Small nucleolar RNA snoR99: a 104-nucleotide RNA from Lupinus angustifolius.
[Rfam]
RNA sequence: GUGGUUCUGGUAUGAACAAGUUCCUUAUAUUCAAUUUAUCCAUCUGAUCACUUUGUCAGCUAUGUUUUUGAAUAUAUAGGUGAUCAUUAUAGUGUGGAAUAAUU
Numbered sequence: 001g002u003g004g005u006u007c008u009g010g011u012a013u014g015a016a017c018a019a020g021u022u023c024c025u026u027a028u029a030u031u032c033a034a035u036u037u038a039u040c041c042a043u044c045u046g047a048u049c050a051c052u053u054u055g056u057c058a059g060c061u062a063u064g065u066u067u068u069u070g071a072a073u074a075u076a077u078a079g080g081u082g083a084u085c086a087u088u089a090u091a092g093u094g095u096g097g098a099a100u101a102a103u104u
Stems, first nucleotide, its partner, number of pairs: 039098005055084004060079003
For this family Rfam cites "Experimental RNomics: identification of 140 candidates for small non-messenger RNAs in the plant Arabidopsis thaliana" (Marker et al., Curr Biol, 2002). The source organism's lineage runs through Eukaryota, Spermatophyta, Mesangiospermae, Gunneridae and Lupinus. Its family is annotated with nucleolus and RNA processing in the Gene Ontology. Rfam classes the family as an H/ACA-box small nucleolar RNA.